Shown here is a 100-nucleotide RNA from a Paenibacillaceae bacterium, a member of the family "Purine riboswitch aptamer". The organism belongs to Paenibacillaceae, within Bacteria. Rfam's curators write: Riboswitches are metabolite binding domains within certain messenger RNAs that serve as precision sensors for their corresponding targets. Allosteric rearrangement of mRNA structure is mediated by ligand binding, and this results in modulation of gene expression. A class of riboswitches that selectively recognises guanine and becomes saturated at concentrations as low as 5 nM. In Bacillus subtilis, this mRNA motif is located on at least five separate transcriptional units that together encode 17 genes that are mostly involved in purine transport and purine nucleotide biosynthesis. It has also been shown that some members of this family are specific for adenine instead. Pairs were carried over by alignment from the consensus structure, which is taken from published work.
RNA sequence: UGUCAGAUUAUGUCGAAGCAUCGUAUAUAUUUGGGAAUUGGCCCGAACGUUUCUACCCGGAAACCAUAAUUUUCGGACUACGAGCUUAUGCAAAUAAAGG
Numbered sequence: 001u002g003u004c005a006g007a008u009u010a011u012g013u014c015g016a017a018g019c020a021u022c023g024u025a026u027a028u029a030u031u032u033g034g035g036a037a038u039u040g041g042c043c044c045g046a047a048c049g050u051u052u053c054u055a056c057c058c059g060g061a062a063a064c065c066a067u068a069a070u071u072u073u074c075g076g077a078c079u080a081c082g083a084g085c086u087u088a089u090g091c092a093a094a095u096a097a098a099g100g
Stems, first nucleotide, its partner, number of pairs: 018086001021083005030047006057076007